[Rfam]
RNA: Plastid-psbA-2 3UTR RNA
RNA sequence: AUAAAUGAGCAAUACUCAUUUUCUUGUUCUAUCAAGAGGGUGCUAUUGCUCCUUUUUUUUU
Numbered sequence: 001a002u003a004a005a006u007g008a009g010c011a012a013u014a015c016u017c018a019u020u021u022u023c024u025u026g027u028u029c030u031a032u033c034a035a036g037a038g039g040g041u042g043c044u045a046u047u048g049c050u051c052c053u054u055u056u057u058u059u060u061u
Stems, first nucleotide, its partner, number of pairs: 001057001003055003007051008015042001017040001019038001022037005